[Rfam]
RNA sequence: GUGAGGGUGAUGAAAAAAAUCAUUCGGAUUCCCAAUGAAUAAAAAUGUGAUUAUUUACCAGCUACUUUUGACUCAU
Numbered sequence: 001g002u003g004a005g006g007g008u009g010a011u012g013a014a015a016a017a018a019a020u021c022a023u024u025c026g027g028a029u030u031c032c033c034a035a036u037g038a039a040u041a042a043a044a045a046u047g048u049g050a051u052u053a054u055u056u057a058c059c060a061g062c063u064a065c066u067u068u069u070g071a072c073u074c075a076u
Stems, first nucleotide, its partner, number of pairs: 001076005